A member of the RNA family "mir-3910 microRNA precursor family" from Homo sapiens, 82 nucleotides long. It is one of the family's seed sequences.
RNA sequence: UUUUUCUGUUGCUUGUCUUGGUUUUAUGCCUUUUAUAUCAAGGCACAUAAAAGGCAUAAAACCAAGACAAGCAACAAAAAAA
Number, nucleotide and partner (000 for none) at each position: 001u000002u081003u080004u079005u078006c000007u076008g075009u074010u073011g072012c071013u070014u069015g068016u067017c066018u065019u064020g063021g062022u061023u060024u059025u058026a057027u056028g055029c054030c053031u052032u051033u050034u049035a048036u047037a000038u045039c000040a000041a000042g000043g000044c000045a038046c000047a036048u035049a034050a033051a032052a031053g030054g029055c028056a027057u026058a025059a024060a023061a022062c021063c020064a019065a018066g017067a016068c015069a014070a013071g012072c011073a010074a009075c008076a007077a000078a005079a004080a003081a002082a000
Description: Rfam 15.1 lists 17 matches to the family in 9 species. NCBI's taxonomy places the organism under Eukaryota, Craniata, Tetrapoda, Simiiformes, Homo.